This 71-nucleotide sequence from Alligator sinensis belongs to the Rfam family "Small nucleolar RNA SNORD82". Pairs were carried over by alignment from the consensus structure, which was predicted with PFOLD. Lineage of the source: Eukaryota > Sarcopterygii > Crocodylia > Alligatoridae > Alligator. Rfam's curators write: snoRNA U82 or Z25 is found in both humans and mice. By type it is a C/D-box small nucleolar RNA. The match comes from Rfam's covariance-model search (62 bits). For this family Rfam cites "Purified box C/D snoRNPs are able to reproduce site-specific 2'-O-methylation of target RNA in vitro" (Galardi et al., Mol Cell Biol, 2002).
[Rfam]
RNA sequence: AGCACAGGUGAUGAGUACUAGGGACUUAAUACUGAAGCCUGAUGUCAGGUUUUUUUUAAAAUCUGAUGUGC
Numbered sequence: 001a002g003c004a005c006a007g008g009u010g011a012u013g014a015g016u017a018c019u020a021g022g023g024a025c026u027u028a029a030u031a032c033u034g035a036a037g038c039c040u041g042a043u044g045u046c047a048g049g050u051u052u053u054u055u056u057u058a059a060a061a062u063c064u065g066a067u068g069u070g071c
Base pairs, nucleotide, nucleotide: 002071003070004069005068006067